[Rfam]
The record is a 46-nucleotide sequence from Streptomyces tsukubensis, which matches "L31-Actinobacteria ribosomal protein leader" in Rfam. A reference for the family is Eckert and Weinberg (2020), "Discovery of 20 novel ribosomal leader candidates in bacteria and archaea", BMC Microbiol. The family is grouped with related families in Rfam's "Ribosomal Protein L31 Leader clan". The organism belongs to Streptomyces, within Bacteria.

RNA sequence: UCGGUCCCGGUUCACGUGCACGCAAUCCGCGUCGCGACCCGGCACC
Number, nucleotide and partner (000 for none) at each position: 001u000002c000003g046004g045005u044006c000007c042008c041009g040010g039011u000012u000013c000014a000015c036016g035017u034018g033019c000020a032021c031022g030023c029024a000025a000026u000027c000028c000029g023030c022031g021032u020033c018034g017035c016036g015037a000038c000039c010040c009041g008042g007043c000044a005045c004046c003

Pairs were carried over by alignment from the consensus structure, which is taken from published work.